SAH (S-adenosyl-L-homocysteine) riboswitch aptamer: a 101-nucleotide sequence from Limnohabitans sp. 2KL-17. The match comes from Rfam's covariance-model search (48 bits). A reference for the family is Wang et al. (2008), "Riboswitches that sense S-adenosylhomocysteine and activate genes involved in coenzyme recycling", Mol Cell.
[Rfam]
RNA sequence: UUCCCCAAGGAGCGUUGCAGCCCGCCGCCGUCUAGGUGCAGCAGGUCAGGCUUGGGGCCGUUCAAUGUCUGAAUGAUCUUGCACAACGACGCUCACCUGUA
Dot-bracket structure: ..((((((............((.((...............)).))......))))))............................................